[Rfam]
RNA sequence: UGUGAAUGAUGAUCCCUCAUGCGUGUCAGCUGAUCCCAGAAUCUUUCUCGGUUCCUCUUGGGUCCCCCGGCGUUCUGUCGGGAGGGCGUGAGUGGGCCUUAAGGGGUCUGGGACCAUGAUCAGUGGUUAGGGAGACUGAACAUG
Numbered sequence: 001u002g003u004g005a006a007u008g009a010u011g012a013u014c015c016c017u018c019a020u021g022c023g024u025g026u027c028a029g030c031u032g033a034u035c036c037c038a039g040a041a042u043c044u045u046u047c048u049c050g051g052u053u054c055c056u057c058u059u060g061g062g063u064c065c066c067c068c069g070g071c072g073u074u075c076u077g078u079c080g081g082g083a084g085g086g087c088g089u090g091a092g093u094g095g096g097c098c099u100u101a102a103g104g105g106g107u108c109u110g111g112g113a114c115c116a117u118g119a120u121c122a123g124u125g126g127u128u129a130g131g132g133a134g135a136c137u138g139a140a141c142a143u144g
Stems, first nucleotide, its partner, number of pairs: 001144004046104003050098005

The family of this 144-nucleotide RNA from Lepisosteus oculatus is "Small nucleolar RNA SNORD10". Pairs were carried over by alignment from the consensus structure, which was predicted with WAR. The source organism's lineage runs through Eukaryota, Gnathostomata, Teleostomi, Lepisosteidae and Lepisosteus. By type it is a C/D-box small nucleolar RNA.